[Rfam]
RNA sequence: AAUUCUGUUUCUAGAAACAAAUAGAAGCAGAUCUAUUCUAUACCAGAUAAGUACCAAUACGCAAUGAGA
Numbered sequence: 001a002a003u004u005c006u007g008u009u010u011c012u013a014g015a016a017a018c019a020a021a022u023a024g025a026a027g028c029a030g031a032u033c034u035a036u037u038c039u040a041u042a043c044c045a046g047a048u049a050a051g052u053a054c055c056a057a058u059a060c061g062c063a064a065u066g067a068g069a
Base pairs, nucleotide, nucleotide: 004021006019007018008017009016010015043068051060052059053058

Background: Plastid-clpP 5UTR RNA: a 69-nucleotide RNA from Salix dunnii. Rfam describes the family as follows. Plastid clpP is a non-coding RNA (ncRNA) recognised in plastids. It was found in the prime untranslated region (5UTR) of a protease complex subunit (clpP) in plastids, suggesting a posible cis-regulatory function.